[Rfam]
RNA: glmS glucosamine-6-phosphate activated ribozyme aptamer
Organism: Parageobacillus caldoxylosilyticus
RNA sequence: UCUUUUUUCAAAGCGCCUGGACUAAGCGUGGAACGGCAAAACGCUUAGUUGACGAGGAGGAGGUUUAUCGAGGUUUCGGCGGAUGCCUCCCGGCUGUGGCGAUUACAGCCGCAAGUCCUUCCUUAAAACAAAGGGGUGACCCUUUGGACAAAGGGGAGGAUGUAAUCGCAA
Numbered sequence: 001u002c003u004u005u006u007u008u009c010a011a012a013g014c015g016c017c018u019g020g021a022c023u024a025a026g027c028g029u030g031g032a033a034c035g036g037c038a039a040a041a042c043g044c045u046u047a048g049u050u051g052a053c054g055a056g057g058a059g060g061a062g063g064u065u066u067a068u069c070g071a072g073g074u075u076u077c078g079g080c081g082g083a084u085g086c087c088u089c090c091c092g093g094c095u096g097u098g099g100c101g102a103u104u105a106c107a108g109c110c111g112c113a114a115g116u117c118c119u120u121c122c123u124u125a126a127a128a129c130a131a132a133g134g135g136g137u138g139a140c141c142c143u144u145u146g147g148a149c150a151a152a153g154g155g156g157a158g159g160a161u162g163u164a165a166u167c168g169c170a171a
Base pairs, nucleotide, nucleotide: 020050021049022048023047024046025045026044027043029041059090060089061088062087063086068079069078070077071076091111092110093109094108095107096106115161116160117159118158119157120156121155129146130145131144132143133142134141135140